RNA: Small nucleolar RNA SNORD121A
Organism: Onychorhynchus coronatus
RNA sequence: UGCCAUAAAACUGUGAUGUGUUAUUUGCAAGCACAUAUCUGAUUGCUUUUUGUGAAAACCUGAUUAUUCCUGAUUUAAUUGUG
Numbered sequence: 001u002g003c004c005a006u007a008a009a010a011c012u013g014u015g016a017u018g019u020g021u022u023a024u025u026u027g028c029a030a031g032c033a034c035a036u037a038u039c040u041g042a043u044u045g046c047u048u049u050u051u052g053u054g055a056a057a058a059c060c061u062g063a064u065u066a067u068u069c070c071u072g073a074u075u076u077a078a079u080u081g082u083g
Base pairs, nucleotide, nucleotide: 001083002082003081005079006078008076009075010074